[Rfam]
RNA sequence: UUGUUAUUGGACUAAUGACGCGCAGAAAUCGGCACGUAAUCCCGGGUGCUUCAACGUAAGGUUGGGGUUGGGUUAUGGGAUCUCUGCAAGUUUGUAAC
Numbered sequence: 001u002u003g004u005u006a007u008u009g010g011a012c013u014a015a016u017g018a019c020g021c022g023c024a025g026a027a028a029u030c031g032g033c034a035c036g037u038a039a040u041c042c043c044g045g046g047u048g049c050u051u052c053a054a055c056g057u058a059a060g061g062u063u064g065g066g067g068u069u070g071g072g073u074u075a076u077g078g079g080a081u082c083u084c085u086g087c088a089a090g091u092u093u094g095u096a097a098c
Base pairs, nucleotide, nucleotide: 023086024085025084026083028081029080030079035077036076037075038074039073040072041071042070048068049067050066051065052064
Shown here is a 98-nucleotide RNA from Zhongshania aliphaticivorans, a member of the family "t44 RNA". A search with the family's covariance model found it, with a score of 45 bits. Lineage of the source: Bacteria > Pseudomonadati > Pseudomonadota > Cellvibrionales > Zhongshania. It is annotated as a small RNA. Rfam's curators write: This family consists of a number of bacterial RNA genes of between 135 and 170 bases in length. The t44 gene has been identified in several species of enteric bacteria but homologs have also been identified in Pseudomonas and Coxiella species. The t44 gene is found between the map and rpsB genes in all species in the full alignment apart from Shigella flexneri. The function of this RNA is unknown.